RNA sequence: UAGAAUAAUGUAGAUAAGGGAAGUCGGCAAAAUAGAUCCGUAACUUCGGGAAAAGGAUUGGCUCUAAGGGUUGGGUGUGUUGGGCCUCGGUUUGAACCCGGUGGAGCUGGUGGGAACUACCUUGGGCGCAAGCCUUUGGCGGAUCCUGCUGGAACUGCUCGGCGGAAAGCCUUGGCUGUGGAUUCAUUUUCACGUCCGGCACACGCUUAACAACCAACUUAGAACUGGUACGGACAAGGGGAAUCUGACUGUCUAAUUAAAACAUAGCAUUGCGAUGGCCAGAAAGUGGUGUUGACGCAAUGUGAUUUCUGCCCAGUGCUCUGAAUGUCAAAGUGAAGAAAUUCAACCAAGCGCGGGUAAACGGCGGGAGUAACUAUGACUCUCUUAAGGUAGCCAAAUGCCUCGUCAUCUAAUUAGUGACGCGCAUGAAUGGAUUAACGAGAUUCCCACUGUCCCUAUCUACUAUCUAGCGAAACCACAGCCAAGGGAACGGGCUUGGCAGA
Numbered sequence: 001u002a003g004a005a006u007a008a009u010g011u012a013g014a015u016a017a018g019g020g021a022a023g024u025c026g027g028c029a030a031a032a033u034a035g036a037u038c039c040g041u042a043a044c045u046u047c048g049g050g051a052a053a054a055g056g057a058u059u060g061g062c063u064c065u066a067a068g069g070g071u072u073g074g075g076u077g078u079g080u081u082g083g084g085c086c087u088c089g090g091u092u093u094g095a096a097c098c099c100g101g102u103g104g105a106g107c108u109g110g111u112g113g114g115a116a117c118u119a120c121c122u123u124g125g126g127c128g129c130a131a132g133c134c135u136u137u138g139g140c141g142g143a144u145c146c147u148g149c150u151g152g153a154a155c156u157g158c159u160c161g162g163c164g165g166a167a168a169g170c171c172u173u174g175g176c177u178g179u180g181g182a183u184u185c186a187u188u189u190u191c192a193c194g195u196c197c198g199g200c201a202c203a204c205g206c207u208u209a210a211c212a213a214c215c216a217a218c219u220u221a222g223a224a225c226u227g228g229u230a231c232g233g234a235c236a237a238g239g240g241g242a243a244u245c246u247g248a249c250u251g252u253c254u255a256a257u258u259a260a261a262a263c264a265u266a267g268c269a270u271u272g273c274g275a276u277g278g279c280c281a282g283a284a285a286g287u288g289g290u291g292u293u294g295a296c297g298c299a300a301u302g303u304g305a306u307u308u309c310u311g312c313c314c315a316g317u318g319c320u321c322u323g324a325a326u327g328u329c330a331a332a333g334u335g336a337a338g339a340a341a342u343u344c345a346a347c348c349a350a351g352c353g354c355g356g357g358u359a360a361a362c363g364g365c366g367g368g369a370g371u372a373a374c375u376a377u378g379a380c381u382c383u384c385u386u387a388a389g390g391u392a393g394c395c396a397a398a399u400g401c402c403u404c405g406u407c408a409u410c411u412a413a414u415u416a417g418u419g420a421c422g423c424g425c426a427u428g429a430a431u432g433g434a435u436u437a438a439c440g441a442g443a444u445u446c447c448c449a450c451u452g453u454c455c456c457u458a459u460c461u462a463c464u465a466u467c468u469a470g471c472g473a474a475a476c477c478a479c480a481g482c483c484a485a486g487g488g489a490a491c492g493g494g495c496u497u498g499g500c501a502g503a
Base pairs, nucleotide, nucleotide: 001469002468003467004466010463011462012461013460014459015458016457018455019454020453035059036058037057038056039055044049060226061225063223064222065221066220067219068218069215070214071213072212073211075204076203077202078201079200080199081198082197083196084176085175086174089171090170091169097164098162099161100159101158102157103156104155107152108151109150110149111148112147113146114145115144117142118141120139121138124135125134126133127132227231239448240447241446242445243444244443245442246440247439250264251263252262267303268302269301270300271299272298273297274296278290279289280288281287307434308433309432311365312364313363316362317361318358319357320356321355323354326353327352328351334345335344336343337342366384367383368382369381370380371379385389405421406420407419408418409417482499483498484497485496486495

This 503-nucleotide part of an RNA from Neolecta irregularis belongs to the Rfam family "Eukaryotic large subunit ribosomal RNA". Pairs were carried over by alignment from the consensus structure, which is taken from published work.